[Rfam]
RNA sequence: UUUUCCCUGGGUGGUGCGUGAUCGUCACCGGAAUUGCUGAGCCAACGAGUACACUUUGGGACGCAGCUUUCAGUACGGCCCGUGUGCAAGCCCGCUAUGCGGGAAGCCUGACGGCCGAACAGCAGCGCCCGCUCUGAGCCUUCGGUUCAGAAUACGAGACGACACGGCUACUCGGGGUCCCA
Numbered sequence: 001u002u003u004u005c006c007c008u009g010g011g012u013g014g015u016g017c018g019u020g021a022u023c024g025u026c027a028c029c030g031g032a033a034u035u036g037c038u039g040a041g042c043c044a045a046c047g048a049g050u051a052c053a054c055u056u057u058g059g060g061a062c063g064c065a066g067c068u069u070u071c072a073g074u075a076c077g078g079c080c081c082g083u084g085u086g087c088a089a090g091c092c093c094g095c096u097a098u099g100c101g102g103g104a105a106g107c108c109u110g111a112c113g114g115c116c117g118a119a120c121a122g123c124a125g126c127g128c129c130c131g132c133u134c135u136g137a138g139c140c141u142u143c144g145g146u147u148c149a150g151a152a153u154a155c156g157a158g159a160c161g162a163c164a165c166g167g168c169u170a171c172u173c174g175g176g177g178u179c180c181c182a
Stems, first nucleotide, its partner, number of pairs: 005177011017166003035152001037150007058130003063126002066123003074119001076117005086107002091103005
A member of the RNA family "6S / SsrS RNA" from Desulfovibrio sp. X2, 182 nucleotides long. Rfam classes the family as a non-coding RNA gene. A reference for the family is Wassarman and Storz (2000), "6S RNA regulates E. coli RNA polymerase activity", Cell. It scores 71 bits against the family's covariance model.